[Rfam]
RNA: Group II catalytic intron D1-D4-4
RNA sequence: UUACUGGUGAAAGUCCAGUCUAGGUAGUUGCCAAGGAGCCUAGUAGCUAUAAGACCAGUGCCAUCAGAGAUGAUGGUGUUGAAGUGUUUCGAAAAUGUACCUUUGUGGUGCUAGCAAAGAUGCAGACCGUAACAUAA
Numbered sequence: 001u002u003a004c005u006g007g008u009g010a011a012a013g014u015c016c017a018g019u020c021u022a023g024g025u026a027g028u029u030g031c032c033a034a035g036g037a038g039c040c041u042a043g044u045a046g047c048u049a050u051a052a053g054a055c056c057a058g059u060g061c062c063a064u065c066a067g068a069g070a071u072g073a074u075g076g077u078g079u080u081g082a083a084g085u086g087u088u089u090c091g092a093a094a095a096u097g098u099a100c101c102u103u104u105g106u107g108g109u110g111c112u113a114g115c116a117a118a119g120a121u122g123c124a125g126a127c128c129g130u131a132a133c134a135u136a137a
Stems, first nucleotide, its partner, number of pairs: 020043005052089004056081006065072002097111005114130002